Source information:
The family of this 89-nucleotide RNA sequence from Rhodovulum imhoffii is "Glycine riboswitch aptamer". Rfam describes the family as follows. This family represents the bacterial glycine riboswitch. Glycine riboswitches usually consist of two metabolite-binding aptamers domains with similar structures in tandem. The aptamers cooperatively bind glycine to regulate the expression of downstream genes. In Bacillus subtilis, this riboswitch is found upstream of the gcvT operon which controls glycine degradation.
[Rfam]
RNA sequence: GCGAACCCCACGGGAGAAUCCGGCCCCGCCCGGUGCCGAAGGAGCAACCGCCCCGGUAAACUCUCAGGCCCAAGGACCGCGGGGGGAAG
Numbered sequence: 001g002c003g004a005a006c007c008c009c010a011c012g013g014g015a016g017a018a019u020c021c022g023g024c025c026c027c028g029c030c031c032g033g034u035g036c037c038g039a040a041g042g043a044g045c046a047a048c049c050g051c052c053c054c055g056g057u058a059a060a061c062u063c064u065c066a067g068g069c070c071c072a073a074g075g076a077c078c079g080c081g082g083g084g085g086g087a088a089g
Stems, first nucleotide, its partner, number of pairs: 006084004011079003020033004035069003038065002042063003048056002